About this RNA: Rfam assigns this 259-nucleotide sequence from [Pantoea] beijingensis to the family "GlmZ RNA activator of glmS mRNA". Clan: Glm clan. Pairs were carried over by alignment from the consensus structure, which is taken from published work. The family's RNA type in Rfam is small RNA.
[Rfam]
RNA sequence: GUAGAUGCUCAUUCCACCCCUUAUGUUUGCUGAUGCUUCAUAAAAUUGGGAAUGAUGCAGAGCCAAUUUACGGUACUUGUUGCCCGACCAGCCAAUAUCGUUUUUCUCUCAUACUUCAAAGUGCAGGUUUGUUGACUGAACGCGAAGUAUGCAGGGCUAGAGGACCUUAUUGGAAAGUGGGCAUUACGUUGAGUCUGGUACCAAUCGGUUGUCUUACCGAUCUGAUCUUUAUACCUGCCAUUUUGGCAGGUUUUUUUUU
Numbered sequence: 001g002u003a004g005a006u007g008c009u010c011a012u013u014c015c016a017c018c019c020c021u022u023a024u025g026u027u028u029g030c031u032g033a034u035g036c037u038u039c040a041u042a043a044a045a046u047u048g049g050g051a052a053u054g055a056u057g058c059a060g061a062g063c064c065a066a067u068u069u070a071c072g073g074u075a076c077u078u079g080u081u082g083c084c085c086g087a088c089c090a091g092c093c094a095a096u097a098u099c100g101u102u103u104u105u106c107u108c109u110c111a112u113a114c115u116u117c118a119a120a121g122u123g124c125a126g127g128u129u130u131g132u133u134g135a136c137u138g139a140a141c142g143c144g145a146a147g148u149a150u151g152c153a154g155g156g157c158u159a160g161a162g163g164a165c166c167u168u169a170u171u172g173g174a175a176a177g178u179g180g181g182c183a184u185u186a187c188g189u190u191g192a193g194u195c196u197g198g199u200a201c202c203a204a205u206c207g208g209u210u211g212u213c214u215u216a217c218c219g220a221u222c223u224g225a226u227c228u229u230u231a232u233a234c235c236u237g238c239c240a241u242u243u244u245g246g247c248a249g250g251u252u253u254u255u256u257u258u259u
Base pairs, nucleotide, nucleotide: 001063002062006059007058008057009055010054011053012052015050017049027035072202073201074200075199076198077197082182083181084180085179086178094171095170096169097168211221212220213219231253233251234250235249236248237247238246239245240244
Dot-bracket structure: ((...(((((((..(.(.........(.......).............)).)))).)))..))........((((((....(((((.......((((......................................................................))))......)))))..............))))))........(((.....))).........(.((((((((...)))))))).)......